[Rfam]
Shown here is a 61-nucleotide RNA sequence from Ensifer sp. M14, a member of the family "terC RNA".
RNA sequence: CCGCUGGUCCGGGCCCCUCUGGCGAGAGCUUCCGGCGCUUUUGCGAUGUCGGACCUUAUCC
Numbered sequence: 001c002c003g004c005u006g007g008u009c010c011g012g013g014c015c016c017c018u019c020u021g022g023c024g025a026g027a028g029c030u031u032c033c034g035g036c037g038c039u040u041u042u043g044c045g046a047u048g049u050c051g052g053a054c055c056u057u058a059u060c061c
Stems, first nucleotide, its partner, number of pairs: 006055007022044008

Pairs were carried over by alignment from the consensus structure, which is taken from published work.
Taxonomically the source falls in Ensifer (Bacteria, Pseudomonadati, Hyphomicrobiales, Rhizobiaceae).
The family's RNA type in Rfam is cis-regulatory element.